[Rfam]
SAM riboswitch aptamer (S box leader): a 116-nucleotide sequence from Pontibacillus chungwhensis.
Nucleotides: 116
Base pairs, nucleotide, nucleotide: 001116002115003114004113005112006111007110008109013042015041016040017039021032022031023030026086027085028084029083043078044077045076046075048074049073050070051069052068053067054066055065056064082108087105088104089103090102091101092100
Number, partner (000 for none) and nucleotide at each position: 001116c002115u003114c004113u005112u006111a007110u008109c009000c010000a011000g012000a013042g014000u015041g016040g017039c018000g019000g020000a021032g022031g023030g024000a025000c026086u027085a028084g029083g030023c031022c032021c033000u034000g035000u036000g037000a038000c039017g040016c041015c042013c043078g044077g045076c046075a047000a048074c049073c050070u051069u052068u053067c054066a055065a056064g057000g058000a059000u060000c061000g062000u063000c064056c065055u066054u067053g068052a069051a070050a071000a072000a073049g074048g075046u076045g077044c078043u079000a080000a081000u082108u083029c084028c085027u086026a087105c088104a089103g090102a091101u092100c093000g094000a095000u096000u097000a098000u099000u100092g101091a102090u103089c104088u105087g106000g107000c108082a109008g110007a111006u112005a113004a114003g115002a116001g
From the family's description: The SAM riboswitch is found upstream of a number of genes which code for proteins involved in methionine or cysteine biosynthesis in Gram-positive bacteria. Taxonomically the source falls in Pontibacillus chungwhensis (Bacteria, Bacillati, Bacillaceae, Pontibacillus).